[Rfam]
The record is a 140-nucleotide RNA sequence from Myotis lucifugus, which matches "Small nucleolar RNA SNORA29" in Rfam.
The literature on the family includes a 2001 paper in EMBO J by Huttenhofer et al., "RNomics: an experimental approach that identifies 201 candidates for novel, small, non-messenger RNAs in mouse".
The base pairs follow the family's consensus structure, which was predicted with PFOLD.
From the family's description: ACA29 is a member of the H/ACA class of snoRNA that guide the sites of modification of uridines to pseudouridines.
By type it is an H/ACA-box small nucleolar RNA.
RNA sequence: CUUCCCAUUUGACUACCACAUUUUGUCCUAAUAAUAGAUUUUAGUGGCUAUGCUUAUGGGAUAGAUUAAAAUUGCCAUGAUCUGAAGAGGGAGGAUUUAUUUGUGUCCUCCUCCUAUAUGAAAUGGCUGAACAGAAAAAA
Numbered sequence: 001c002u003u004c005c006c007a008u009u010u011g012a013c014u015a016c017c018a019c020a021u022u023u024u025g026u027c028c029u030a031a032u033a034a035u036a037g038a039u040u041u042u043a044g045u046g047g048c049u050a051u052g053c054u055u056a057u058g059g060g061a062u063a064g065a066u067u068a069a070a071a072u073u074g075c076c077a078u079g080a081u082c083u084g085a086a087g088a089g090g091g092a093g094g095a096u097u098u099a100u101u102u103g104u105g106u107c108c109u110c111c112u113c114c115u116a117u118a119u120g121a122a123a124u125g126g127c128u129g130a131a132c133a134g135a136a137a138a139a140a
Base pairs, nucleotide, nucleotide: 004060005059006058007057016047017046018045019044074127075126076125077124092115094113095112